[Rfam]
RNA: Glycine riboswitch aptamer
Organism: Teichococcus coralli
RNA sequence: CCUCUGGAAAGCCCAGAGCCCGGAAACGGGGGCUGGCACCGACGGAGUAAGGCGCGUGAUUGCCCGCGCUGAAUCUCUCAGGUUCUCGGGACAGAGG
Numbered sequence: 001c002c003u004c005u006g007g008a009a010a011g012c013c014c015a016g017a018g019c020c021c022g023g024a025a026a027c028g029g030g031g032g033c034u035g036g037c038a039c040c041g042a043c044g045g046a047g048u049a050a051g052g053c054g055c056g057u058g059a060u061u062g063c064c065c066g067c068g069c070u071g072a073a074u075c076u077c078u079c080a081g082g083u084u085c086u087c088g089g090g091a092c093a094g095a096g097g
Base pairs, nucleotide, nucleotide: 001097002096003095004094005093006092013036014035015034016033038083039082040081041079042078045077046076047075051070052069053068054067055066056065